[Rfam]
RNA: U1A polyadenylation inhibition element (PIE)
RNA sequence: CCACACAGCACUGUAUCCAGAGUCUGGCCCCAGACAUUGCACCUGGCACUGUAGGCUGGAAUUAAAGUGUUCA
Numbered sequence: 001c002c003a004c005a006c007a008g009c010a011c012u013g014u015a016u017c018c019a020g021a022g023u024c025u026g027g028c029c030c031c032a033g034a035c036a037u038u039g040c041a042c043c044u045g046g047c048a049c050u051g052u053a054g055g056c057u058g059g060a061a062u063u064a065a066a067g068u069g070u071u072c073a
Base pairs, nucleotide, nucleotide: 005052006051007050008049017046018045019044020043022035023034024033025032026031